[Rfam]
RNA sequence: ACUAUGAUCCCAUAGGAUCCGCUAGGCGCCAACGUUCGGAUGAGCCAAACCACUAGCGC
Numbered sequence: 001a002c003u004a005u006g007a008u009c010c011c012a013u014a015g016g017a018u019c020c021g022c023u024a025g026g027c028g029c030c031a032a033c034g035u036u037c038g039g040a041u042g043a044g045c046c047a048a049a050c051c052a053c054u055a056g057c058g059c
Stems, first nucleotide, its partner, number of pairs: 006019005026059004034050003038046002

The record is a 59-nucleotide sequence, which matches "MDR-NUDIX RNA" in Rfam.
Rfam's curators put it in the seed alignment.
It is annotated as a cis-regulatory element.
The base pairs follow the family's consensus structure, which is taken from published work.